Shown here is a 316-nucleotide RNA from Rhabdornis inornatus, a member of the family "7SK RNA". About the family: 7SK was discovered as an abundant small nuclear RNA in the mid-70s but a possible function has only recently been suggested. It is annotated as a non-coding RNA gene. A search with the family's covariance model found it, with a score of 143 bits.
[Rfam]
Nucleotides: 316
Base pairs, nucleotide, nucleotide: 001109002108003107006102008100009099010098011097013094014093018091024089025088026087028084029083030082031081033079035074036073037070038069039068042067044065045064046062047061117171118170122165123140124139125138126137128136129135141162142161143160148158150156201271203269207265208264210262211261212260213259214258215257222253225250228248229247230246231245232244279316280315281314285307288302289301290300291299292298
Number, partner (000 for none) and nucleotide at each position: 001109g002108g003107a004000u005000a006102u007000a008100a009099g010098g011097g012000u013094a014093a015000u016000c017000u018091g019000u020000c021000u022000g023000u024089g025088a026087g027000a028084u029083c030082u031081g032000a033079u034000a035074u036073u037070c038069c039068a040000u041000u042067g043000a044065u045064u046062g047061u048000a049000c050000a051000g052000g053000u054000u055000g056000a057000u058000c059000u060000g061047a062046c063000u064045g065044a066000c067042c068039u069038g070037g071000c072000u073036a074035g075000c076000u077000u078000a079033g080000g081031c082030a083029g084028g085000g086000g087026c088025u089024u090000c091018c092000u093014u094013u095000c096000u097011c098010c099009c100008u101000c102006g103000a104000c105000a106000u107003u108002c109001c110000a111000u112000g113000u114000g115000u116000g117171u118170u119000c120000c121000c122165u123140g124139u125138g126137a127000u128136g129135c130000u131000g132000u133000g134000u135129g136128c137126u138125u139124a140123u141162u142161u143160a144000a145000c146000a147000a148158g149000a150156a151000c152000a153000g154000c155000c156150u157000c158148c159000c160143u161142g162141a163000u164000a165122g166000a167000c168000a169000u170118g171117g172000u173000a174000u175000u176000g177000u178000u179000c180000a181000u182000u183000g184000g185000u186000c187000a188000a189000g190000g191000g192000u193000g194000u195000g196000u197000g198000g199000u200000a201271g202000g203269u204000g205000u206000g207265c208264u209000c210262c211261c212260c213259u214258g215257c216000u217000g218000g219000a220000a221000u222253c223000u224000c225250u226000a227000a228248g229247u230246a231245a232244g233000u234000u235000c236000a237000a238000g239000g240000u241000c242000c243000a244232u245231u246230u247229g248228u249000a250225g251000a252000u253222g254000a255000a256000u257215g258214u259213a260212g261211g262210g263000u264208a265207g266000u267000c268000a269203a270000g271201u272000c273000a274000c275000a276000u277000c278000c279316a280315a281314a282000u283000g284000a285307g286000a287000a288302g289301c290300u291299g292298c293000a294000u295000g296000c297000a298292g299291c300290a301289g302288u303000c304000u305000g306000c307285c308000a309000g310000u311000g312000g313000c314281u315280u316279u